[Rfam]
RNA sequence: GGGUAAGAACGGGAGAUAGACAGGGACGAGGCAGAGCAUGGAAUGAACCAACAACACAACUUCGUUGUUGCUCUUCCCAUGCACUGCCUCUUCCCUGGCUCUCCGCAUCUCCUUUAC
Numbered sequence: 001g002g003g004u005a006a007g008a009a010c011g012g013g014a015g016a017u018a019g020a021c022a023g024g025g026a027c028g029a030g031g032c033a034g035a036g037c038a039u040g041g042a043a044u045g046a047a048c049c050a051a052c053a054a055c056a057c058a059a060c061u062u063c064g065u066u067g068u069u070g071c072u073c074u075u076c077c078c079a080u081g082c083a084c085u086g087c088c089u090c091u092u093c094c095c096u097g098g099c100u101c102u103c104c105g106c107a108u109c110u111c112c113u114u115u116a117c
Stems, first nucleotide, its partner, number of pairs: 018100002021097006029089006036082006045073002
A member of the RNA family "MIR408 microRNA precursor family" from Coptis chinensis, 117 nucleotides long. Pairs were carried over by alignment from the consensus structure, which was predicted with WAR. Its family is annotated with RISC complex and miRNA-mediated post-transcriptional gene silencing in the Gene Ontology. Lineage of the source: Eukaryota > Spermatophyta > Mesangiospermae > Coptidoideae > Coptis. It scores 90 bits against the family's covariance model. Rfam 15.1 lists 299 matches to the family in 186 species.